c-di-AMP riboswitch aptamer (ydaO/yuaA leader): a 126-nucleotide sequence from Caldanaerobacter subterraneus. Rfam links the family to the GO terms cyclic-di-AMP binding and regulation of gene expression. Taxonomically the source falls in Caldanaerobacter subterraneus subsp. tengcongensis (Bacteria, Bacillota, Thermoanaerobacteraceae, Caldanaerobacter subterraneus).
[Rfam]
RNA sequence: AGUUAAAACAUGCCGAAUCCCCGAUAAGGGGUACGGGGGAUGUAAAUUUGGGGUGAAUCCACGUAUUGUGGUAGGGUGGCCCUCACCCGAACCCGUCAACUAACCUCGGAGGCAAAGGGGGUAAAU
Numbered sequence: 001a002g003u004u005a006a007a008a009c010a011u012g013c014c015g016a017a018u019c020c021c022c023g024a025u026a027a028g029g030g031g032u033a034c035g036g037g038g039g040a041u042g043u044a045a046a047u048u049u050g051g052g053g054u055g056a057a058u059c060c061a062c063g064u065a066u067u068g069u070g071g072u073a074g075g076g077u078g079g080c081c082c083u084c085a086c087c088c089g090a091a092c093c094c095g096u097c098a099a100c101u102a103a104c105c106u107c108g109g110a111g112g113c114a115a116a117g118g119g120g121g122u123a124a125a126u
Stems, first nucleotide, its partner, number of pairs: 011114004019031002034108005043050002051094003059071004074088004